Shown here is a 105-nucleotide RNA sequence from Clostridium sp. JN-9, a member of the family "SAM riboswitch aptamer (S box leader)".

[Rfam]
RNA sequence: AACUUAUCAAGAGUGGCGGAGGGACUGGCCCUAUGAAACCCAGCAACCGAUACAUAUAUUUGUAUAGCGGUGCUAAAUCCAGCAGCGAAGGCUGAAAGAUGAGGA
Numbered sequence: 001a002a003c004u005u006a007u008c009a010a011g012a013g014u015g016g017c018g019g020a021g022g023g024a025c026u027g028g029c030c031c032u033a034u035g036a037a038a039c040c041c042a043g044c045a046a047c048c049g050a051u052a053c054a055u056a057u058a059u060u061u062g063u064a065u066a067g068c069g070g071u072g073c074u075a076a077a078u079c080c081a082g083c084a085g086c087g088a089a090g091g092c093u094g095a096a097a098g099a100u101g102a103g104g105a
Base pairs, nucleotide, nucleotide: 003103004102005101006100007099008098013041015040016039021031022030023029025082026081027080028079042074043073044072045071047070048069050065051064052063078097083094084093085092086091
Lineage of the source: Bacteria > Bacillati > Clostridia > Eubacteriales > Clostridium. The family's consensus secondary structure is taken from published work.